[Rfam]
RNA: Group II catalytic intron D1-D4-3
RNA sequence: UCCCUCGCGAGUUGGAAUCUGAAAGAAGCUGGCGGCAAAUAUCUGGUCUGACGAACAGAAACUUCAUAUAAGGCAUAUGACCGUGGGUAAGGUUGCUGAACAAACCAAAGCCCUAUAGCUAUUCGGAAACGGUUGGUGUAAAUGGAGCAGACAUAAGAUAGAAAGUUAAUACC
Numbered sequence: 001u002c003c004c005u006c007g008c009g010a011g012u013u014g015g016a017a018u019c020u021g022a023a024a025g026a027a028g029c030u031g032g033c034g035g036c037a038a039a040u041a042u043c044u045g046g047u048c049u050g051a052c053g054a055a056c057a058g059a060a061a062c063u064u065c066a067u068a069u070a071a072g073g074c075a076u077a078u079g080a081c082c083g084u085g086g087g088u089a090a091g092g093u094u095g096c097u098g099a100a101c102a103a104a105c106c107a108a109a110g111c112c113c114u115a116u117a118g119c120u121a122u123u124c125g126g127a128a129a130c131g132g133u134u135g136g137u138g139u140a141a142a143u144g145g146a147g148c149a150g151a152c153a154u155a156a157g158a159u160a161g162a163a164a165g166u167u168a169a170u171a172c173c
Stems, first nucleotide, its partner, number of pairs: 001016003006011001028173001030171002035166002040160005046152005062147006073139004078135006085113004091106004